Background:
Rfam assigns this 130-nucleotide RNA from Chenopodium quinoa to the family "Small nucleolar RNA snoR74". Its family is annotated with nucleolus and RNA processing in the Gene Ontology. A reference for the family is Marker et al. (2002), "Experimental RNomics: identification of 140 candidates for small non-messenger RNAs in the plant Arabidopsis thaliana", Curr Biol.
[Rfam]
RNA sequence: AAAAAAGCAAAGCUCAAUUGUAUUUCAGAAAUGGGGCUUCCGUAAACUUCAGGGAUAUAGAAAAGCAUCGUUAUUGGGUGAACCUCUGUUUUGUGUAGUGGCUGAAGGUUCAGUAAAUGAUGAUACAUGC
Number, nucleotide and partner (000 for none) at each position: 001a000002a000003a000004a000005a049006a048007g047008c000009a000010a000011a038012g037013c000014u035015c034016a000017a032018u000019u000020g000021u000022a000023u000024u000025u000026c000027a000028g000029a000030a000031a000032u017033g000034g015035g014036g000037c012038u011039u000040c000041c000042g000043u000044a000045a000046a000047c007048u006049u005050c000051a000052g000053g000054g000055a000056u000057a000058u000059a000060g000061a000062a000063a000064a000065g000066c122067a121068u120069c119070g118071u117072u116073a000074u000075u000076g000077g000078g000079u112080g111081a110082a109083c108084c107085u106086c000087u000088g000089u000090u000091u000092u000093g000094u000095g000096u000097a000098g000099u000100g000101g000102c000103u000104g000105a000106a085107g084108g083109u082110u081111c080112a079113g000114u000115a000116a072117a071118u070119g069120a068121u067122g066123a000124u000125a000126c000127a000128u000129g000130c000

A search with the family's covariance model found it, with a score of 97 bits.